[Rfam]
Nucleotides: 083
Base pairs, nucleotide, nucleotide: 002083003082004081006034007033008032009031010030015025016024017023018022036047037046038045049078050077051076055071056070057069058068059067060066061065
Number, partner (000 for none) and nucleotide at each position: 001000u002083c003082g004081c005000g006034u007033c008032c009031g010030c011000c012000a013000a014000c015025c016024g017023g018022u019000u020000c021000a022018g023017c024016c025015g026000u027000g028000a029000c030010g031009c032008g033007g034006a035000a036047g037046g038045u039000u040000u041000c042000u043000u044000c045038a046037c047036c048000a049078a050077c051076u052000u053000g054000a055071g056070c057069u058068u059067c060066c061065c062000u063000g064000a065061g066060g067059g068058a069057g070056g071055c072000g073000a074000a075000a076051g077050g078049u079000c080000u081004g082003c083002g
Rfam assigns this 83-nucleotide sequence from Ottowia oryzae to the family "SucA RNA motif". It is annotated as a cis-regulatory element. The base pairs follow the family's consensus structure, which is taken from published work. Rfam links the family to the GO term regulation of translation. The source organism's lineage runs through Bacteria, Pseudomonadota, Betaproteobacteria, Comamonadaceae and Ottowia. A search with the family's covariance model found it, with a score of 67 bits.